[Rfam]
RNA sequence: AGCAUAGAUAGAGGCGCGGAUUUCAAGAGUAAGCAUGUUGAGGCUUGCCGGAGCCGGUGAAGCAUGGUAAAAGGGAAAGCCGCCGAAGAGGACAGUUGGCAGCUGUUUUCUGGGCACUGGCGCGAAAGCACAGUGACUGUCAUCAUUUUAUUAUGAUGGGGCGCUAUCGGGGAA
Numbered sequence: 001a002g003c004a005u006a007g008a009u010a011g012a013g014g015c016g017c018g019g020a021u022u023u024c025a026a027g028a029g030u031a032a033g034c035a036u037g038u039u040g041a042g043g044c045u046u047g048c049c050g051g052a053g054c055c056g057g058u059g060a061a062g063c064a065u066g067g068u069a070a071a072a073g074g075g076a077a078a079g080c081c082g083c084c085g086a087a088g089a090g091g092a093c094a095g096u097u098g099g100c101a102g103c104u105g106u107u108u109u110c111u112g113g114g115c116a117c118u119g120g121c122g123c124g125a126a127a128g129c130a131c132a133g134u135g136a137c138u139g140u141c142a143u144c145a146u147u148u149u150a151u152u153a154u155g156a157u158g159g160g161g162c163g164c165u166a167u168c169g170g171g172g173a174a
Stems, first nucleotide, its partner, number of pairs: 007168005016083004021078004032068001034066006087111011112138002115135004120131001122129002140159007
The record is a 174-nucleotide sequence from Hydrogeniiclostridium mannosilyticum, which matches "Lysine riboswitch aptamer" in Rfam. Rfam's curators write: Riboswitches are metabolite binding domains within certain messenger RNAs that serve as precision sensors for their corresponding targets. Taxonomically the source falls in Hydrogeniiclostridium (Bacteria, Bacillati, Bacillota, Acutalibacteraceae).